[Rfam]
RNA sequence: AUGUGUGUAUAUGCACACACACAUGUGUGUAUAUGCACAUGUGUGUAUAUGCACACACACACACACAUGUGUGUAUAUGUACACACACACAUGUGUGUAUAUGCACACACACGUGUGCACACGUGUGCACACACAUGUGUGUAUAUGCACACAUGUGUGUAUAUGCACACGCACAUGUGUGUAUAUGCACACACACACAUGUGUGUAUAUGUACACACACGUGUGUGCAUAUGCAUACACACAUGUGUGUAU
Numbered sequence: 001a002u003g004u005g006u007g008u009a010u011a012u013g014c015a016c017a018c019a020c021a022c023a024u025g026u027g028u029g030u031a032u033a034u035g036c037a038c039a040u041g042u043g044u045g046u047a048u049a050u051g052c053a054c055a056c057a058c059a060c061a062c063a064c065a066c067a068u069g070u071g072u073g074u075a076u077a078u079g080u081a082c083a084c085a086c087a088c089a090c091a092u093g094u095g096u097g098u099a100u101a102u103g104c105a106c107a108c109a110c111a112c113g114u115g116u117g118c119a120c121a122c123g124u125g126u127g128c129a130c131a132c133a134c135a136u137g138u139g140u141g142u143a144u145a146u147g148c149a150c151a152c153a154u155g156u157g158u159g160u161a162u163a164u165g166c167a168c169a170c171g172c173a174c175a176u177g178u179g180u181g182u183a184u185a186u187g188c189a190c191a192c193a194c195a196c197a198c199a200u201g202u203g204u205g206u207a208u209a210u211g212u213a214c215a216c217a218c219a220c221g222u223g224u225g226u227g228c229a230u231a232u233g234c235a236u237a238c239a240c241a242c243a244u245g246u247g248u249g250u251a252u
Base pairs, nucleotide, nucleotide: 005106006105007104008103009102010101011100012099013098018097019096020095021094022093023092024091033074034073035072036071037070038069039068040063041062042061043060044059045058046057048055076089078087079086116183117182118181122171123170124169125168126167127166128165129164130159131158132157133156134155135154136153137152138151139150140149141148142147173180174179190205191204192203193202194201216249217248218247220245221244222243223242224241225240226239227238229236

Shown here is a 252-nucleotide sequence from Penaeus vannamei, a member of the family "RNA of unknown function RUF4". Lineage of the source: Eukaryota > Opisthokonta > Eumalacostraca > Stomatocarida > Penaeus. Rfam classes the family as a small RNA. A search with the family's covariance model found it, with a score of 59 bits. Pairs were carried over by alignment from the consensus structure, which was predicted with WAR. A reference for the family is Chakrabarti et al. (2007), "Structural RNAs of known and unknown function identified in malaria parasites by comparative genomics and RNA analysis", RNA.